RNA sequence: GUCCCGGUAGCCUAAUUGGUAAGGCGUUGGACUGGUAAUCGAGAGGAUGUGGGUUCGAAUCCCGUCCGGGCCU
Numbered sequence: 001g002u003c004c005c006g007g008u009a010g011c012c013u014a015a016u017u018g019g020u021a022a023g024g025c026g027u028u029g030g031a032c033u034g035g036u037a038a039u040c041g042a043g044a045g046g047a048u049g050u051g052g053g054u055u056c057g058a059a060u061c062c063c064g065u066c067c068g069g070g071c072c073u
Stems, first nucleotide, its partner, number of pairs: 001072001003070005010025004027043002030040002049065005
The record is a 73-nucleotide sequence from Psylliodes chrysocephalus, which matches "tRNA" in Rfam. The source organism's lineage runs through Eukaryota, Protostomia, Polyphaga, Alticini and Psylliodes. Gene Ontology term of the family: triplet codon-amino acid adaptor activity. A search with the family's covariance model found it, with a score of 55 bits.